Shown here is a 104-nucleotide RNA sequence from Streptococcus hillyeri, a member of the family "trpB ncRNA motif".
Its family is annotated with regulation of gene expression in the Gene Ontology.

RNA sequence: GGCAUAGAUACGACUUUUUGGAGUACUUCAAAAAAGUAUCUGUGCCGCUUGUCUUAGACUUCAAAAGAAAAGCGUCAUAGGAAACUAGGCGCUUUUUUGCAUAC
Numbered sequence: 001g002g003c004a005u006a007g008a009u010a011c012g013a014c015u016u017u018u019u020g021g022a023g024u025a026c027u028u029c030a031a032a033a034a035a036g037u038a039u040c041u042g043u044g045c046c047g048c049u050u051g052u053c054u055u056a057g058a059c060u061u062c063a064a065a066a067g068a069a070a071a072g073c074g075u076c077a078u079a080g081g082a083a084a085c086u087a088g089g090c091g092c093u094u095u096u097u098u099g100c101a102u103a104c
Base pairs, nucleotide, nucleotide: 001046002045003044004043005042006041007040008039009038010037011036015034016033017032018031019030021029071093072092073091074090076089078087079086080085